Shown here is a 526-nucleotide RNA from Grifola frondosa, a member of the family "Nuclear RNase P".
On this family, see Frank and Pace, Annu Rev Biochem 1998: "Ribonuclease P: unity and diversity in a tRNA processing ribozyme".
NCBI's taxonomy places the organism under Eukaryota, Opisthokonta, Fungi, Agaricomycetes, Grifola.
It is annotated as a ribozyme.
The family's consensus secondary structure is taken from published work.

[Rfam]
RNA sequence: GCAGCUCAAAGGCCGCGAAGCUCAUUCCAUACAGGAUGUCCUACAUCCGCACUCAUGAGCGGGCUAAGGUCUGAACGGCACCCAUUUCAAUAUGCUCCUGGUCCUAGAUGGACCCCAUCGCAAUCGAUGGUGAGAGCCACCAGCCAGUCGCAGGGUUGGGCGAGCCUUAUCGUAAUCACUGCGUGGACCUCUUUAUCAUAUGUCUCAUGCAUUCUGCCAGUGAGCGAGUGCUGGGAGUUACUGAUCUCGUCUGCCGGUCUCCAGCAAUUCGAGAUCCCCUUGCAUUGUACACUCUUCCGAGACUUAUGUCUCAGAUGCUCUGCCAAUGUGCGGGCAUGAGGAGGGAUUUUGCUCGCUUCAAGCGGACUAUGGUACAUGCUGAAGGGCCUAUGGGUACACUCCUGCGAGAGACAUAUGAGAAGUUUGUAUCUAGCAGAUGGGCGAUACUCGUCCUUCAGUGCUAUUCGCGGCUCGCAUAAAAGCCUAUGUGCUUUGCGAAACUCAAUUCAGACCACUCUUGGGCUGC
Numbered sequence: 001g002c003a004g005c006u007c008a009a010a011g012g013c014c015g016c017g018a019a020g021c022u023c024a025u026u027c028c029a030u031a032c033a034g035g036a037u038g039u040c041c042u043a044c045a046u047c048c049g050c051a052c053u054c055a056u057g058a059g060c061g062g063g064c065u066a067a068g069g070u071c072u073g074a075a076c077g078g079c080a081c082c083c084a085u086u087u088c089a090a091u092a093u094g095c096u097c098c099u100g101g102u103c104c105u106a107g108a109u110g111g112a113c114c115c116c117a118u119c120g121c122a123a124u125c126g127a128u129g130g131u132g133a134g135a136g137c138c139a140c141c142a143g144c145c146a147g148u149c150g151c152a153g154g155g156u157u158g159g160g161c162g163a164g165c166c167u168u169a170u171c172g173u174a175a176u177c178a179c180u181g182c183g184u185g186g187a188c189c190u191c192u193u194u195a196u197c198a199u200a201u202g203u204c205u206c207a208u209g210c211a212u213u214c215u216g217c218c219a220g221u222g223a224g225c226g227a228g229u230g231c232u233g234g235g236a237g238u239u240a241c242u243g244a245u246c247u248c249g250u251c252u253g254c255c256g257g258u259c260u261c262c263a264g265c266a267a268u269u270c271g272a273g274a275u276c277c278c279c280u281u282g283c284a285u286u287g288u289a290c291a292c293u294c295u296u297c298c299g300a301g302a303c304u305u306a307u308g309u310c311u312c313a314g315a316u317g318c319u320c321u322g323c324c325a326a327u328g329u330g331c332g333g334g335c336a337u338g339a340g341g342a343g344g345g346a347u348u349u350u351g352c353u354c355g356c357u358u359c360a361a362g363c364g365g366a367c368u369a370u371g372g373u374a375c376a377u378g379c380u381g382a383a384g385g386g387c388c389u390a391u392g393g394g395u396a397c398a399c400u401c402c403u404g405c406g407a408g409a410g411a412c413a414u415a416u417g418a419g420a421a422g423u424u425u426g427u428a429u430c431u432a433g434c435a436g437a438u439g440g441g442c443g444a445u446a447c448u449c450g451u452c453c454u455u456c457a458g459u460g461c462u463a464u465u466c467g468c469g470g471c472u473c474g475c476a477u478a479a480a481a482g483c484c485u486a487u488g489u490g491c492u493u494u495g496c497g498a499a500a501c502u503c504a505a506u507u508c509a510g511a512c513c514a515c516u517c518u519u520g521g522g523c524u525g526c
Stems, first nucleotide, its partner, number of pairs: 001526004007520003012471007020060005034048005071510005100114005115130006472498005478492001